[Rfam]
Rfam assigns this 149-nucleotide RNA sequence from Aotus nancymaae to the family "U12 minor spliceosomal RNA". The family has 62 seed sequences and 2,106 matches in Rfam 15.1. A reference for the family is Tarn and Steitz (1997), "Pre-mRNA splicing: the discovery of a new spliceosome doubles the challenge", Trends Biochem Sci.
RNA sequence: AUUCCUUAAACUUAUGAUUAAGAAAAAUAACGAUCAGGGCAAUGCCCGAAUCCUCACUGCUAAUGUGAGACGAAUUUUUGAGCAGGUAAAGGUUGCCCCUGAGGUGACCUGCCUACUUUGCAGGAUGACUGGGAGCCAAGAUCUGCCCA
Numbered sequence: 001a002u003u004c005c006u007u008a009a010a011c012u013u014a015u016g017a018u019u020a021a022g023a024a025a026a027a028u029a030a031c032g033a034u035c036a037g038g039g040c041a042a043u044g045c046c047c048g049a050a051u052c053c054u055c056a057c058u059g060c061u062a063a064u065g066u067g068a069g070a071c072g073a074a075u076u077u078u079u080g081a082g083c084a085g086g087u088a089a090a091g092g093u094u095g096c097c098c099c100u101g102a103g104g105u106g107a108c109c110u111g112c113c114u115a116c117u118u119u120g121c122a123g124g125a126u127g128a129c130u131g132g133g134a135g136c137c138a139a140g141a142u143c144u145g146c147c148c149a
Base pairs, nucleotide, nucleotide: 005022006021007020008019032052033051034049035048037046038045053069054068055067056066057065085147086146087145090144091143092142093141094140099133100132102130103129105127106126108124109123110122111121112120
The pairing is the family consensus, mapped onto this sequence. The source organism's lineage runs through Eukaryota, Bilateria, Vertebrata, Primates and Aotus. The match comes from Rfam's covariance-model search (98 bits).